[Rfam]
RNA sequence: AAAACGCAAGGGAUAGUAUAGAAGGAGUACACCUUGAUAGAGGUAGCCACGGUGCGAAUCCGUGUCAUUGCGUUACAUCUAGCCCCUUAAUUGGGGCUUUUUAAUU
Numbered sequence: 001a002a003a004a005c006g007c008a009a010g011g012g013a014u015a016g017u018a019u020a021g022a023a024g025g026a027g028u029a030c031a032c033c034u035u036g037a038u039a040g041a042g043g044u045a046g047c048c049a050c051g052g053u054g055c056g057a058a059u060c061c062g063u064g065u066c067a068u069u070g071c072g073u074u075a076c077a078u079c080u081a082g083c084c085c086c087u088u089a090a091u092u093g094g095g096g097c098u099u100u101u102u103a104a105u106u
Base pairs, nucleotide, nucleotide: 003074004073005072006071007070008069009068012066013065031044032043033042034041035040048064049063050062051061052060081098082097083096084095085094086093
RNA: Streptococcus sRNA SpF41
Organism: Streptococcus suis